[Rfam]
RNA sequence: GCAUCGGUUUAGCUCAAUGGCUCCUUCGUCCGAUCGGGCAAAAUCACUCACCGGACCGCCGGCCCGGGUACGACCAUGGGCACUGUCCGAUGUUUUC
Numbered sequence: 001g002c003a004u005c006g007g008u009u010u011a012g013c014u015c016a017a018u019g020g021c022u023c024c025u026u027c028g029u030c031c032g033a034u035c036g037g038g039c040a041a042a043a044u045c046a047c048u049c050a051c052c053g054g055a056c057c058g059c060c061g062g063c064c065c066g067g068g069u070a071c072g073a074c075c076a077u078g079g080g081c082a083c084u085g086u087c088c089g090a091u092g093u094u095u096u097c
Base pairs, nucleotide, nucleotide: 002092003091004090005089006088007087012081013080014079015078017077018076019075020074026073027072028071029070

The record is a 97-nucleotide RNA sequence from Amphiprion percula, which matches "Vault RNA" in Rfam. Rfam 15.1 lists 2,873 matches to the family in 431 species. About the family: This family of RNAs are found as part of the enigmatic vault ribonucleoprotein complex. Taxonomically the source falls in Amphiprion (Eukaryota, Metazoa, Gnathostomata, Actinopteri). Pairs were carried over by alignment from the consensus structure, which is taken from published work. A search with the family's covariance model found it, with a score of 55 bits. It is annotated as a non-coding RNA gene. For this family Rfam cites "Evolution of Vault RNAs" (Stadler et al., Mol Biol Evol, 2009).